A member of the RNA family "Bacterial RNase P class A" from Saltatorellus ferox, 405 nucleotides long.
By type it is a ribozyme.
Ribonuclease P (RNase P) is a ubiquitous endoribonuclease, found in archaea, bacteria and eukarya as well as chloroplasts and mitochondria.
On this family, see Frank and Pace, Annu Rev Biochem 1998: "Ribonuclease P: unity and diversity in a tRNA processing ribozyme".
It scores 280 bits against the family's covariance model.
NCBI's taxonomy places the organism under Bacteria, Pseudomonadati, Planctomycetota, Planctomycetia, Saltatorellus.
RNA sequence: CGAGAAGCUGGGGCAGUCGCUCCGCGGAGCCUCCAUUUUUGGGGACGAUCGCGGGGAGGAAAGUCCGGGCUCCAUGGGCGAAGGUGGUUGUUAACGGCAACCGGUCGUGAGGCCAGGGAAAGUGCAACAGAGAGGAGACCGCCGAUCACGCUCCGAAAGGGGCGCAGAGGCAAGGGUGAAACGGUGCGGUAAGAGCGCACCAGCGCUCCCGGUGACGGGAGCGGCUUGGUAAACCCCACCUGGAGAAAGACCAAAUAGGGAAGGGCAUGUGGCGCCAGCCUGCGUCCAGUUUCCUUUCGGGUUGGUCGUUCGAGGCCGGCGGCGACGUCGGUCCCAGAGAAAUGACUGUCGCGUCGCUCCCUCGGGAACGGCGUACAGGACCCGGCUUACAAGGCUUCUCGCACC
Numbered sequence: 001c002g003a004g005a006a007g008c009u010g011g012g013g014c015a016g017u018c019g020c021u022c023c024g025c026g027g028a029g030c031c032u033c034c035a036u037u038u039u040u041g042g043g044g045a046c047g048a049u050c051g052c053g054g055g056g057a058g059g060a061a062a063g064u065c066c067g068g069g070c071u072c073c074a075u076g077g078g079c080g081a082a083g084g085u086g087g088u089u090g091u092u093a094a095c096g097g098c099a100a101c102c103g104g105u106c107g108u109g110a111g112g113c114c115a116g117g118g119a120a121a122g123u124g125c126a127a128c129a130g131a132g133a134g135g136a137g138a139c140c141g142c143c144g145a146u147c148a149c150g151c152u153c154c155g156a157a158a159g160g161g162g163c164g165c166a167g168a169g170g171c172a173a174g175g176g177u178g179a180a181a182c183g184g185u186g187c188g189g190u191a192a193g194a195g196c197g198c199a200c201c202a203g204c205g206c207u208c209c210c211g212g213u214g215a216c217g218g219g220a221g222c223g224g225c226u227u228g229g230u231a232a233a234c235c236c237c238a239c240c241u242g243g244a245g246a247a248a249g250a251c252c253a254a255a256u257a258g259g260g261a262a263g264g265g266c267a268u269g270u271g272g273c274g275c276c277a278g279c280c281u282g283c284g285u286c287c288a289g290u291u292u293c294c295u296u297u298c299g300g301g302u303u304g305g306u307c308g309u310u311c312g313a314g315g316c317c318g319g320c321g322g323c324g325a326c327g328u329c330g331g332u333c334c335c336a337g338a339g340a341a342a343u344g345a346c347u348g349u350c351g352c353g354u355c356g357c358u359c360c361c362u363c364g365g366g367a368a369c370g371g372c373g374u375a376c377a378g379g380a381c382c383c384g385g386c387u388u389a390c391a392a393g394g395c396u397u398c399u400c401g402c403a404c405c
Stems, first nucleotide, its partner, number of pairs: 001401009011390001012350007020056008061388003065385005070245004077286004082241005087101005102116001103114004117236002122234002124230002139175002141171003149164006183201006203225001204223008249307004259298006277291003314333008